[Rfam]
RNA sequence: CUACCUGUCAAAGGGGAGUAGCUAUAGGUUUCAUACCUAAACAAAGUCGUCAAUUCAUGGUGCAUGCCAUCGGCUUUGUUGGCAUAUCCGUAUGCU
Numbered sequence: 001c002u003a004c005c006u007g008u009c010a011a012a013g014g015g016g017a018g019u020a021g022c023u024a025u026a027g028g029u030u031u032c033a034u035a036c037c038u039a040a041a042c043a044a045a046g047u048c049g050u051c052a053a054u055u056c057a058u059g060g061u062g063c064a065u066g067c068c069a070u071c072g073g074c075u076u077u078g079u080u081g082g083c084a085u086a087u088c089c090g091u092a093u094g095c096u
Stems, first nucleotide, its partner, number of pairs: 026038003040080010057070005081096006
Rfam assigns this 96-nucleotide RNA sequence from Rossellomorea vietnamensis to the family "Manganese Mn2+ riboswitch aptamer (yybP-ykoY)". The organism belongs to Rossellomorea, within Bacteria. For this family Rfam cites "Mn(2+)-sensing mechanisms of yybP-ykoY orphan riboswitches" (Price et al., Mol Cell, 2015). The pairing is the family consensus, mapped onto this sequence. Rfam's curators write: This RNA was originally discovered in E. coli during a large scale screen and was named SraF. The family was later found to exist upstream of related families of protein genes in many bacteria, including the the yybP and ykoK genes in B. subtilis. It scores 52 bits against the family's covariance model.